[Rfam]
This 498-nucleotide sequence from Saccharothrix violaceirubra belongs to the Rfam family "Saccharopolyspora sRNA 350". On this family, see Liu et al., PLoS One 2013: "Prediction and characterization of small non-coding RNAs related to secondary metabolites in Saccharopolyspora erythraea". Rfam links the family to the GO term regulation of secondary metabolite biosynthetic process. NCBI's taxonomy places the organism under Bacteria, Actinomycetota, Actinomycetes, Pseudonocardiaceae, Saccharothrix. The match comes from Rfam's covariance-model search (214 bits). The family's consensus secondary structure was predicted with RNAfold. It is annotated as an antisense RNA.

RNA sequence: UUGACGGUGUACUCCCACCGCUCGUCCUCGCCCGCGAGCGAUUCGUCGCCGAAGUGGUCGCCGUCGGCGAGCACGUCGAGCACGGUCUGGUCGCCGUACUCGCCCGCGCCGAUCUUGUUGACCUUGCCGUGCGCGACGAGGAACACCUCGUCGGCCGGGCGGCCGGCCUCGACGAGCACGUCGCCGACGCCGAACUCGCGCUGCUCGAACCGGUUGGCGAGCGCGUCGAGCAGCGCGUCGUCGGCGAGGUCGCGCAACGCCGGCAGCUCGCGCAGCUCCUGGGGGACGACCCGGAUGUCCGAGCCGGUGCCGGUGAACGUCACGCGGCCGUCGCCGAUCGCGUAGCUCAGCCGGCGGUUGACCCGGUACGUACCGGCGUCGGUGCGCACCCACGGCAGCUGCCGCAGCAGCCACCGGGGCGAGAUGCCCUGCAUCUGGGGCGUGGACUUGGUGGUCGACGCCAGGUUCCGGGCCGCCGCCGUGCCGAGGGCACGCCGC
Numbered sequence: 001u002u003g004a005c006g007g008u009g010u011a012c013u014c015c016c017a018c019c020g021c022u023c024g025u026c027c028u029c030g031c032c033c034g035c036g037a038g039c040g041a042u043u044c045g046u047c048g049c050c051g052a053a054g055u056g057g058u059c060g061c062c063g064u065c066g067g068c069g070a071g072c073a074c075g076u077c078g079a080g081c082a083c084g085g086u087c088u089g090g091u092c093g094c095c096g097u098a099c100u101c102g103c104c105c106g107c108g109c110c111g112a113u114c115u116u117g118u119u120g121a122c123c124u125u126g127c128c129g130u131g132c133g134c135g136a137c138g139a140g141g142a143a144c145a146c147c148u149c150g151u152c153g154g155c156c157g158g159g160c161g162g163c164c165g166g167c168c169u170c171g172a173c174g175a176g177c178a179c180g181u182c183g184c185c186g187a188c189g190c191c192g193a194a195c196u197c198g199c200g201c202u203g204c205u206c207g208a209a210c211c212g213g214u215u216g217g218c219g220a221g222c223g224c225g226u227c228g229a230g231c232a233g234c235g236c237g238u239c240g241u242c243g244g245c246g247a248g249g250u251c252g253c254g255c256a257a258c259g260c261c262g263g264c265a266g267c268u269c270g271c272g273c274a275g276c277u278c279c280u281g282g283g284g285g286a287c288g289a290c291c292c293g294g295a296u297g298u299c300c301g302a303g304c305c306g307g308u309g310c311c312g313g314u315g316a317a318c319g320u321c322a323c324g325c326g327g328c329c330g331u332c333g334c335c336g337a338u339c340g341c342g343u344a345g346c347u348c349a350g351c352c353g354g355c356g357g358u359u360g361a362c363c364c365g366g367u368a369c370g371u372a373c374c375g376g377c378g379u380c381g382g383u384g385c386g387c388a389c390c391c392a393c394g395g396c397a398g399c400u401g402c403c404g405c406a407g408c409a410g411c412c413a414c415c416g417g418g419g420c421g422a423g424a425u426g427c428c429c430u431g432c433a434u435c436u437g438g439g440g441c442g443u444g445g446a447c448u449u450g451g452u453g454g455u456c457g458a459c460g461c462c463a464g465g466u467u468c469c470g471g472g473c474c475g476c477c478g479c480c481g482u483g484c485c486g487a488g489g490g491c492a493c494g495c496c497g498c
Base pairs, nucleotide, nucleotide: 006390007389008388009387010386012384014382015381018327020325021324022322024320025319028316029315035313038310039309040308042306045305047303049301051299052298055232058229059228060227062225063224064223065111066110067109068108075103077102078101079100080099082097083096084095085094086093117222118221119220122217123216127212129210130209131206133204134203135202138199140197143196149192150191154188156186158185159184160183162177166173236294240290241289242288243287245285250282251281252280254278256277258275261270262269329342330341331340352378353377355375356374357373361371362370391431392430394428395427396426397425399423400422403418405416407415437476439474440473443470444469445468446467447465448464449463450462451461452460478498480494481493482492484490485489
Dot-bracket structure: .....(((((.(.((..(.(((.((..((.....(..(((.(..(.(.(.((..(..(((.(((((((......(.((((.(((((......))))).)))))....)))).....(((..((...(.(((.(((..(.(..(.....((...(.(.(((.(...(......)...).....)))).)..))...)).)..))).)..)).)...))..)))))).)))..)...(...((((.(....(((.(.(.(..((......))....).)).)))..).))))...)...)).).).)).)))..).))..)).).)).).(((........))).........((.(((...((.......)).))).))..)).).)))))((.((((.((..(.(.(.......)).)...)).)))).)).....(.((..((((((((((.......)))))).))))..)).).(.(((.((...)).)))...)